Annotation
The family of this 47-nucleotide RNA sequence from Hydrogenophaga sp. H7 is "Guanidine-II riboswitch aptamer (mini-ykkC)". The match comes from Rfam's covariance-model search (32 bits).
RNA sequence: CCAGCAGGACGGCCUGCUGCGCGACACCCCUCGGCAGGACGGCCUGC
Numbered sequence: 001c002c003a004g005c006a007g008g009a010c011g012g013c014c015u016g017c018u019g020c021g022c023g024a025c026a027c028c029c030c031u032c033g034g035c036a037g038g039a040c041g042g043c044c045u046g047c
Stems, first nucleotide, its partner, number of pairs: 002019007034047005